Purine riboswitch aptamer: a 102-nucleotide sequence from Candidatus Kurthia intestinigallinarum. The base pairs follow the family's consensus structure, which is taken from published work.

[Rfam]
RNA sequence: GAGUUAUAAUUGAAUUACCCUCAUAUAUGUUCGAUAAUAUGGAUCGAAUGUUUCUACCAAGUUGCCGUAAAUGACUUGACUAUGAAGGUGAAUGCACGAAGU
Numbered sequence: 001g002a003g004u005u006a007u008a009a010u011u012g013a014a015u016u017a018c019c020c021u022c023a024u025a026u027a028u029g030u031u032c033g034a035u036a037a038u039a040u041g042g043a044u045c046g047a048a049u050g051u052u053u054c055u056a057c058c059a060a061g062u063u064g065c066c067g068u069a070a071a072u073g074a075c076u077u078g079a080c081u082a083u084g085a086a087g088g089u090g091a092a093u094g095c096a097c098g099a100a101g102u
Stems, first nucleotide, its partner, number of pairs: 018088002021085005029049007058078007